[Rfam]
RNA sequence: GCCUAUGGAGCAUCAUCAAGAUUCACAAGCUUUAUUAGGGCUAGUGUGUGGUGAUGAUGGUGGCUUUUGGUGGUCCCUUUUUUUCAAUCCAAUAGCCCUUUGAAUUGGGAAUCUUGAUGAUGCUGCAGCGGC
Numbered sequence: 001g002c003c004u005a006u007g008g009a010g011c012a013u014c015a016u017c018a019a020g021a022u023u024c025a026c027a028a029g030c031u032u033u034a035u036u037a038g039g040g041c042u043a044g045u046g047u048g049u050g051g052u053g054a055u056g057a058u059g060g061u062g063g064c065u066u067u068u069g070g071u072g073g074u075c076c077c078u079u080u081u082u083u084u085c086a087a088u089c090c091a092a093u094a095g096c097c098c099u100u101u102g103a104a105u106u107g108g109g110a111a112u113c114u115u116g117a118u119g120a121u122g123c124u125g126c127a128g129c130g131g132c
Base pairs, nucleotide, nucleotide: 001129002128006127007126009124010123011122012121013120014119015118016117017116018115019114020113021112022111023110024109026107027106
Rfam assigns this 132-nucleotide RNA sequence from Populus trichocarpa to the family "mir-172 microRNA precursor family". mir-172 has been experimentally verified in Arabidopsis thaliana. This family is thought to target mRNAs coding for APETALA2-like transcription factors. The mature sequence is excised from the 3' arm of the hairpin. For this family Rfam cites "Computational Identification of Plant MicroRNAs and Their Targets, Including a Stress-Induced miRNA" (Jones-Rhoades and Bartel, Mol Cell, 2004). NCBI's taxonomy places the organism under Eukaryota, Streptophytina, Euphyllophyta, Saliceae, Populus. Gene Ontology terms of the family: miRNA-mediated post-transcriptional gene silencing and RISC complex.